[Rfam]
RNA: ffh sRNA
RNA sequence: UAGCAGUUGGAUCGCCCCCCGUCAGCGAGUUUCGCCCACGGGGGUAAUUACG
Dot-bracket structure: ...............(((((((..((((...))))..)))))))........